[Rfam]
RNA sequence: GGGCCAGCUUAGCCUAGUGGUUACUUCGACUCUACAUUUGCAGAAUCACUAAUUGCUUAACGGCAGUUCGAUACUCCAUGGGCGCUGUCUGGCUACUUU
Numbered sequence: 001g002g003g004c005c006a007g008c009u010u011a012g013c014c015u016a017g018u019g020g021u022u023a024c025u026u027c028g029a030c031u032c033u034a035c036a037u038u039u040g041c042a043g044a045a046u047c048a049c050u051a052a053u054u055g056c057u058u059a060a061c062g063g064c065a066g067u068u069c070g071a072u073a074c075u076c077c078a079u080g081g082g083c084g085c086u087g088u089c090u091g092g093c094u095a096c097u098u099u
Stems, first nucleotide, its partner, number of pairs: 002094006012083004017079004026071004